[Rfam]
RNA sequence: GUGGGUUAUGGAGACAUGCAUCCCCAAACCACGCUAGGUAAAUUCGUUGGAUGCUUGUGUGCCGUGGCUGGGGUUCUCACAAUUGCACUUCCAGUUCCUGUGAUUGUUUCUAAU
Dot-bracket structure: ((.((..((((..(((.(.((...............((.(........((...........))..........).))................)).).)))..))))..)).))
The record is a 114-nucleotide sequence from Hydatigera taeniaeformis, which matches "Potassium channel RNA editing signal" in Rfam. The source organism's lineage runs through Eukaryota, Spiralia, Lophotrochozoa, Rhabditophora and Hydatigera. Rfam's curators write: This family represents a group of sequences related to the human potassium channel Kv1.1 hairpin element which directs the efficient modification of an adenosine to inosine by an adenosine deaminase acting on RNA (ADAR). The ADAR modification causes an isoleucine/valine recoding event which lies in the ion-conducting pore of the potassium channel. It is thought that this editing event targets the process of fast inactivation and allows a more rapid recovery from inactivation at negative potentials. Rfam 15.1 lists 14,095 matches to the family in 1,000 species. The base pairs follow the family's consensus structure, which is taken from published work.